[Rfam]
RNA sequence: GGAGUGUGCUCAGAGCAGGGGGCCUGAAGAAACAGCUCCUCUGUUUACAACAGACCCAACAGGAAAUCGGGGUUCAUACGACAAGAGGCACAAAACUUGUGGCUUUCCUGUGAACAAACACCCAACAUGU
Numbered sequence: 001g002g003a004g005u006g007u008g009c010u011c012a013g014a015g016c017a018g019g020g021g022g023c024c025u026g027a028a029g030a031a032a033c034a035g036c037u038c039c040u041c042u043g044u045u046u047a048c049a050a051c052a053g054a055c056c057c058a059a060c061a062g063g064a065a066a067u068c069g070g071g072g073u074u075c076a077u078a079c080g081a082c083a084a085g086a087g088g089c090a091c092a093a094a095a096c097u098u099g100u101g102g103c104u105u106u107c108c109u110g111u112g113a114a115c116a117a118a119c120a121c122c123c124a125a126c127a128u129g130u
Stems, first nucleotide, its partner, number of pairs: 002057001004055002007052002013046009022036002070123004077116001082112002085105003089101005
The record is a 130-nucleotide RNA from Sus scrofa, which matches "Small nucleolar RNA SNORA11" in Rfam. The family's RNA type in Rfam is H/ACA-box small nucleolar RNA. NCBI's taxonomy places the organism under Eukaryota, Opisthokonta, Euteleostomi, Mammalia, Sus. The literature on the family includes a 2005 paper in Nucleic Acids Res by Gu et al., "A novel experimental approach for systematic identification of box H/ACA snoRNAs from eukaryotes". The base pairs follow the family's consensus structure, which was predicted with RNAalifold. Gene Ontology terms of the family: RNA processing and nucleolus.